A member of the RNA family "U1 spliceosomal RNA" from Aedes aegypti, 166 nucleotides long. The match comes from Rfam's covariance-model search (142 bits). Rfam's curators write: U1 is a small nuclear RNA (snRNA) component of the spliceosome (involved in pre-mRNA splicing). Rfam classes the family as a spliceosomal small nuclear RNA. Lineage of the source: Eukaryota > Insecta > Pterygota > Aedes > Stegomyia.
Nucleotides: 166
Base pairs, nucleotide, nucleotide: 012124013123014122015121017047018046019045020044023042024041025040026039027038049092050091051090052089054088056085057084058083060081061080062079064076094119095118096117097115098114099113101111102110140165141164142163143162144161147158148157149156150155
Number, partner (000 for none) and nucleotide at each position: 001000a002000u003000a004000c005000u006000u007000a008000c009000c010000u011000g012124g013123c014122a015121c016000a017047g018046g019045g020044g021000u022000u023042a024041c025040c026039g027038u028000g029000a030000u031000c032000a033000u034000c035000a036000a037000g038027g039026c040025g041024g042023u043000u044020c045019c046018c047017c048000c049092a050091g051090g052089g053000u054088g055000a056085g057084a058083c059000c060081c061080g062079g063000c064076c065000a066000u067000u068000g069000c070000a071000c072000a073000u074000c075000u076064g077000u078000g079062c080061u081060g082000g083058g084057u085056u086000g087000a088054c089052c090051c091050c092049u093000g094119c095118g096117a097115a098114u099113a100000u101111c102110c103000c104000u105000c106000a107000u108000g109000u110102g111101g112000a113099u114098a115097u116000c117096u118095c119094g120000u121015g122014u123013g124012u125000g126000u127000a128000a129000u130000u131000u132000u133000u134000g135000g136000u137000a138000g139000c140165c141164g142163g143162g144161a145000c146000g147158u148157g149156c150155g151000u152000u153000c154000g155150c156149g157148c158147a159000c160000a161144u162143c163142c164141c165140g166000a